[Rfam]
RNA: FourU thermometer RNA element
RNA sequence: GGACAAGCGAUGCUUGCCUGCAAUUUGAGCUUUUGAAUGGAUGAUUCAGGAGGUUAACUUAUGGCAC
Numbered sequence: 001g002g003a004c005a006a007g008c009g010a011u012g013c014u015u016g017c018c019u020g021c022a023a024u025u026u027g028a029g030c031u032u033u034u035g036a037a038u039g040g041a042u043g044a045u046u047c048a049g050g051a052g053g054u055u056a057a058c059u060u061a062u063g064g065c066a067c
Stems, first nucleotide, its partner, number of pairs: 001018002004016005025057004030052009